[Rfam]
RNA: Hairpin ribozyme 1 from viruses-like metatranscriptomes
RNA sequence: GUGCGGUCGGGGGACCCCCCCCUGGAAGCACGGCAGGGAAACAUCAUACGUUGUAUGAGCACAUUAACUGCC
Number, nucleotide and partner (000 for none) at each position: 001g031002u030003g029004c028005g000006g000007u000008c000009g023010g022011g021012g020013g019014a000015c000016c000017c000018c000019c013020c012021c011022c010023u009024g000025g000026a000027a000028g004029c003030a002031c001032g072033g071034c070035a069036g068037g000038g000039a000040a000041a000042c000043a000044u058045c057046a056047u055048a054049c053050g000051u000052u000053g049054u048055a047056u046057g045058a044059g000060c000061a000062c000063a000064u000065u000066a000067a000068c036069u035070g034071c033072c032